[Rfam]
RNA: tRNA
Organism: Corynebacterium heidelbergense
Nucleotides: 089
Base pairs, nucleotide, nucleotide: 001088002087003086004085005084006083007082010026011025012024028044029043030042031041032040065081066080067079068078069077
Number, partner (000 for none) and nucleotide at each position: 001088g002087g003086a004085g005084g006083c007082g008000u009000g010026c011025c012024a013000g014000a015000g016000c017000g018000g019000c020000c021000g022000a023000a024012u025011g026010g027000g028044g029043c030042u031041c032040a033000c034000u035000g036000c037000u038000a039000a040032u041031g042030a043029g044028u045000u046000g047000u048000c049000c050000c051000c052000c053000u054000c055000a056000c057000a058000g059000g060000g061000g062000a063000c064000c065081g066080g067079a068078g069077g070000u071000u072000c073000a074000a075000a076000u077069c078068c079067u080066c081065u082007c083006g084005u085004c086003u087002c088001c089000g